RNA sequence: GCGCCCGUCGUUGGGGAGUAGCCAAUUUCCUGUUCCCGGAAAUGUGCGUGUCAACAUACUCGUUGCAAAACGUGGCACGUACGGAUCGAAUAGCUGACGCUGUUCGGUCAGGCGAGACCAUAGACGCAUCAACUGCUGAUUACUGGGGGCAGUGAUGUGUCAUAUGGAUUUCCCGGUCAGGACGCUU
Numbered sequence: 001g002c003g004c005c006c007g008u009c010g011u012u013g014g015g016g017a018g019u020a021g022c023c024a025a026u027u028u029c030c031u032g033u034u035c036c037c038g039g040a041a042a043u044g045u046g047c048g049u050g051u052c053a054a055c056a057u058a059c060u061c062g063u064u065g066c067a068a069a070a071c072g073u074g075g076c077a078c079g080u081a082c083g084g085a086u087c088g089a090a091u092a093g094c095u096g097a098c099g100c101u102g103u104u105c106g107g108u109c110a111g112g113c114g115a116g117a118c119c120a121u122a123g124a125c126g127c128a129u130c131a132a133c134u135g136c137u138g139a140u141u142a143c144u145g146g147g148g149g150c151a152g153u154g155a156u157g158u159g160u161c162a163u164a165u166g167g168a169u170u171u172c173c174c175g176g177u178c179a180g181g182a183c184g185c186u187u
Stems, first nucleotide, its partner, number of pairs: 026041002044082010061072004084187002087184002
RNA: Manganese Mn2+ riboswitch aptamer (yybP-ykoY)
Organism: Pseudescherichia vulneris